[Rfam]
Rfam assigns this 110-nucleotide RNA sequence from Carlito syrichta to the family "Small nucleolar RNA SNORD89".
Gene Ontology terms of the family: RNA processing and nucleolus.
snoRNA HBII-289 belongs to the family of C/D snoRNAs. It is the human orthologue of the mouse MBII-289 and has no identified RNA target.
On this family, see Huttenhofer et al., EMBO J 2001: "RNomics: an experimental approach that identifies 201 candidates for novel, small, non-messenger RNAs in mouse".
The family has 18 seed sequences and 642 matches in Rfam 15.1.
Pairs were carried over by alignment from the consensus structure, which was predicted with RNAalifold.
RNA sequence: GCUGAGGAGUGAUGACCGUGAAAGGCCGAAUUGCAGCGUCUCCCUCGCAGCUGCUCUCCGGGGCACGCGAUGACAAGACCUCCUGAAGCGAACCGCUGUCUGACCUCAGC
Number, nucleotide and partner (000 for none) at each position: 001g110002c109003u108004g107005a106006g105007g104008a000009g000010u000011g000012a000013u000014g100015a099016c098017c000018g000019u000020g000021a000022a000023a000024g000025g034026c033027c000028g000029a000030a000031u000032u000033g026034c025035a097036g096037c095038g094039u000040c000041u091042c090043c088044c000045u086046c085047g083048c000049a000050g068051c067052u065053g064054c063055u062056c061057u000058c000059c000060g000061g056062g055063g054064c053065a052066c000067g051068c050069g082070a081071u000072g079073a000074c000075a000076a000077g000078a000079c072080c000081u070082c069083c047084u000085g046086a045087a000088g043089c000090g042091a041092a000093c000094c038095g037096c036097u035098g016099u015100c014101u000102g000103a000104c007105c006106u005107c004108a003109g002110c001